Shown here is a 282-nucleotide sequence from Papio anubis, a member of the family "Mason-Pfizer monkey virus packaging signal".
Taxonomically the source falls in Papio (Eukaryota, Teleostomi, Amniota, Theria).
Pairs were carried over by alignment from the consensus structure, which was predicted with PFOLD.

[Rfam]
RNA sequence: CGUAUACCAACAGGGACCUGAAACUAGGGACCUUGGGUGAGGAAGAGACGCCAAAGGACGGCCUAAUCGCUAACAAGGACAAAAGAGCUAAACUCUUCUCCAUCAACAAGGAACCUGCCGCAUCUGAAUCGAAGGUAAGUGGCGCGUCCGAAAUAGGACAAGAAUUAAGUCAGCAUCAGAUCUAUGUAGGACAAUUAAAAGAGGCUUUAAAGAUACGAGGAGUAAAGGUUAAAGGUAAUGAUUUGUUUAAGUUUUUUGAUUUUGUAAAAGACAUUUGCCCUU
Numbered sequence: 001c002g003u004a005u006a007c008c009a010a011c012a013g014g015g016a017c018c019u020g021a022a023a024c025u026a027g028g029g030a031c032c033u034u035g036g037g038u039g040a041g042g043a044a045g046a047g048a049c050g051c052c053a054a055a056g057g058a059c060g061g062c063c064u065a066a067u068c069g070c071u072a073a074c075a076a077g078g079a080c081a082a083a084a085g086a087g088c089u090a091a092a093c094u095c096u097u098c099u100c101c102a103u104c105a106a107c108a109a110g111g112a113a114c115c116u117g118c119c120g121c122a123u124c125u126g127a128a129u130c131g132a133a134g135g136u137a138a139g140u141g142g143c144g145c146g147u148c149c150g151a152a153a154u155a156g157g158a159c160a161a162g163a164a165u166u167a168a169g170u171c172a173g174c175a176u177c178a179g180a181u182c183u184a185u186g187u188a189g190g191a192c193a194a195u196u197a198a199a200a201g202a203g204g205c206u207u208u209a210a211a212g213a214u215a216c217g218a219g220g221a222g223u224a225a226a227g228g229u230u231a232a233a234g235g236u237a238a239u240g241a242u243u244u245g246u247u248u249a250a251g252u253u254u255u256u257u258g259a260u261u262u263u264g265u266a267a268a269a270g271a272c273a274u275u276u277g278c279c280c281u282u
Base pairs, nucleotide, nucleotide: 007029008028012025013024035049038046092136093135094134097132098131103128104126105125110118144159147157148156150154166209167208168207169205170204171203216258217257218256219255220254221253222252223251226244227243228242229241230240231239267282268281270279272277